[Rfam]
RNA sequence: CUCCAUGUAUCUAUGGGACCUGUCAGCCGUGGCAGGCUCCCUUCCUAGCCAUGGAAGAGCAUGAGCCUUGUUGAUUGGCAAAGCUGGCACCAUCUUGGUUGGUAUCAGAUUCUGACUUGCACAAGGAACACGG
Number, nucleotide and partner (000 for none) at each position: 001c000002u055003c054004c053005a052006u051007g050008u000009a000010u000011c000012u000013a000014u000015g041016g040017g039018a038019c000020c035021u034022g033023u032024c031025a000026g000027c000028c000029g000030u000031g024032g023033c022034a021035g020036g000037c000038u018039c017040c016041c015042u000043u000044c000045c000046u000047a000048g000049c000050c007051a006052u005053g004054g003055a002056a000057g000058a000059g000060c000061a000062u000063g000064a000065g000066c000067c000068u000069u130070g129071u128072u127073g000074a000075u124076u123077g122078g120079c119080a118081a117082a000083g000084c108085u107086g106087g000088c000089a103090c102091c101092a100093u000094c000095u000096u000097g000098g000099u000100u092101g091102g090103u089104a000105u000106c086107a085108g084109a000110u000111u000112c000113u000114g000115a000116c000117u081118u080119g079120c078121a000122c077123a076124a075125g000126g000127a072128a071129c070130a069131c000132g000133g000
RNA: Small nucleolar RNA SNORA24